[Rfam]
RNA sequence: AGCCAGUGAUGAGCUACAUUAUUUCUGAAACCUCACCUGAAAACUGUACCUGCAGUAUUUGAUGACACUGUUUUGAGGCUC
Numbered sequence: 001a002g003c004c005a006g007u008g009a010u011g012a013g014c015u016a017c018a019u020u021a022u023u024u025c026u027g028a029a030a031c032c033u034c035a036c037c038u039g040a041a042a043a044c045u046g047u048a049c050c051u052g053c054a055g056u057a058u059u060u061g062a063u064g065a066c067a068c069u070g071u072u073u074u075g076a077g078g079c080u081c
Stems, first nucleotide, its partner, number of pairs: 001080004043056005
Dot-bracket structure: ((((......................................(((((....)))))....................)))).
A member of the RNA family "Small nucleolar RNA SNORD60" from Gopherus agassizii, 81 nucleotides long. Rfam 15.1 lists 825 matches to the family in 373 species. Pairs were carried over by alignment from the consensus structure, which was predicted with PFOLD. Rfam links the family to the GO terms RNA processing and nucleolus. The organism belongs to Gopherus, within Eukaryota. The literature on the family includes a 2002 paper in Mol Cell Biol by Galardi et al., "Purified box C/D snoRNPs are able to reproduce site-specific 2'-O-methylation of target RNA in vitro".